Annotation:
Rfam assigns this 74-nucleotide sequence from Sphingobium sp. YG1 to the family "Makes More Granules Regulator RNA (mmgR)". The source organism's lineage runs through Bacteria, Pseudomonadati, Pseudomonadota, Alphaproteobacteria and Sphingobium. The match comes from Rfam's covariance-model search (49 bits).
[Rfam]
RNA sequence: GGAACUCGCCUUUCAGGCAUCCUCUCCUAAAACUUCAAGGCCGUCCUUCUGGGCGGCUUUUUUUUAUCUUUUUU
Numbered sequence: 001g002g003a004a005c006u007c008g009c010c011u012u013u014c015a016g017g018c019a020u021c022c023u024c025u026c027c028u029a030a031a032a033c034u035u036c037a038a039g040g041c042c043g044u045c046c047u048u049c050u051g052g053g054c055g056g057c058u059u060u061u062u063u064u065u066a067u068c069u070u071u072u073u074u
Base pairs, nucleotide, nucleotide: 008018009017010016011015038059039058040057041056042055043054044053045052046051
The family's RNA type in Rfam is small RNA. Rfam describes the family as follows. SuhB later renamed mmgR (makes more granules regulator) was a putative non-coding RNA found multiple times in the Agrobacterium tumefaciens genome and related alpha-proteobacteria. Other non-coding RNAs uncovered in the same analysis include: speF, ybhL, metA, and serC.Several studies inSinorhizobium meliloti showed that suhB element is indeed a non-coding RNA:firstly it was detected on Northern blot and called Sm8RNA, secondly in an RNAseq study referred to as SmelC689.The mutant phenotype's (strain lacking the small RNA) cytoplasm contains higher content of polyhydroxybutyrate (PBH)storage granules than wild type strain.